[Rfam]
RNA: DUF3800-X RNA
RNA sequence: GGGCGAUAAUUGCGCCCGGUGCGGAGCGGGCGCAUCCCGCCCCGAAAGUAUGAGGCCGCCGGACGGCGGUCCGGAGGCGAGUAGGGGCGGUUCGCCC
Numbered sequence: 001g002g003g004c005g006a007u008a009a010u011u012g013c014g015c016c017c018g019g020u021g022c023g024g025a026g027c028g029g030g031c032g033c034a035u036c037c038c039g040c041c042c043c044g045a046a047a048g049u050a051u052g053a054g055g056c057c058g059c060c061g062g063a064c065g066g067c068g069g070u071c072c073g074g075a076g077g078c079g080a081g082u083a084g085g086g087g088c089g090g091u092u093c094g095c096c097c
Stems, first nucleotide, its partner, number of pairs: 001097006037090007056069005